RNA sequence: AAACAUAUCGAAGCGCCAUGCACCUUUCUGAUACGGAAACAGACAUACUCUUGUCUGAUAGGAAGGUUAACGAGGAGGAAAGUUAUCGAGAUAUUCGGCGGAUGCUUUCCCGCAGCUCCAGACUACGUGAUAUACUGAGUAAAACCAUGAGUGAUCAUGAAACAGAGGCAGUAUAAUCUGGACAA
Numbered sequence: 001a002a003a004c005a006u007a008u009c010g011a012a013g014c015g016c017c018a019u020g021c022a023c024c025u026u027u028c029u030g031a032u033a034c035g036g037a038a039a040c041a042g043a044c045a046u047a048c049u050c051u052u053g054u055c056u057g058a059u060a061g062g063a064a065g066g067u068u069a070a071c072g073a074g075g076a077g078g079a080a081a082g083u084u085a086u087c088g089a090g091a092u093a094u095u096c097g098g099c100g101g102a103u104g105c106u107u108u109c110c111c112g113c114a115g116c117u118c119c120a121g122a123c124u125a126c127g128u129g130a131u132a133u134a135c136u137g138a139g140u141a142a143a144a145c146c147a148u149g150a151g152u153g154a155u156c157a158u159g160a161a162a163c164a165g166a167g168g169c170a171g172u173a174u175a176a177u178c179u180g181g182a183c184a185a
Base pairs, nucleotide, nucleotide: 022067023066024065025064026063027062028061030059077110078109079108080107081106086098087097088096089095111127112126114124115123131175132174133173134172135171136170137169146159147158148157149156150155
The family of this 185-nucleotide RNA from Firmicutes bacterium AF12-30 is "glmS glucosamine-6-phosphate activated ribozyme aptamer". By type it is a riboswitch. The match comes from Rfam's covariance-model search (82 bits). The source organism's lineage runs through Bacteria, Bacillati and Bacillota. About the family: This entry contains a glucosamine-6-phosphate activated ribozyme that is found in the mRNA for GlmS. GlmS is an enzyme that uses fructose-6-phosphate and glutamine to generate glucosamine-6-phosphate.